[Rfam]
RNA sequence: ACGCCGCCUGAGCGGCGUCCGAGCUCCUGAACGGGGCCAAGCCGGGGGUGGUGCCGUGUCGGCGCAGCACCACCCCCGCGCC
Numbered sequence: 001a002c003g004c005c006g007c008c009u010g011a012g013c014g015g016c017g018u019c020c021g022a023g024c025u026c027c028u029g030a031a032c033g034g035g036g037c038c039a040a041g042c043c044g045g046g047g048g049u050g051g052u053g054c055c056g057u058g059u060c061g062g063c064g065c066a067g068c069a070c071c072a073c074c075c076c077c078g079c080g081c082c
Base pairs, nucleotide, nucleotide: 001018002017003016004015005014006013007012021038023037024036025035026034027033043078044077045076046075047074048073049072050071051070052069053068054067056065057064058063
RNA: Streptomyces RNA 6106